[Rfam]
RNA: Molybdenum/Tungsten riboswitch aptamer (Moco RNA motif)
Organism: Syntrophomonas wolfei
RNA sequence: GAAUAGAACCGGCUCCAAGCCUUUGAGCCUAAUGACUGAAACUCAUUUGUCAGGGAGAAUCGGACUUUUAUGGUGGAAAAAGCCUGAAUCCCUGAGCCCGUUAAAAAAGUAUAAAAAUUAUGGACGAUUAAUGCAUUUUAUACUUUCAUUUUUGCUGGGAUUGAGUCUUUAAUCCAUGGUUUAACGGCCGCGGUAUAAGUGGAAACGCUUGUGCCUCCCUUAUUUGGAAAGGAGACCAAAUUCACUAUUAG
Dot-bracket structure: ...(.(....((((((..(((.(((((((....((.........................................................................................................................................))...))))))).)))...((((((((((....)))))))))).((.......))...)))).))....).).......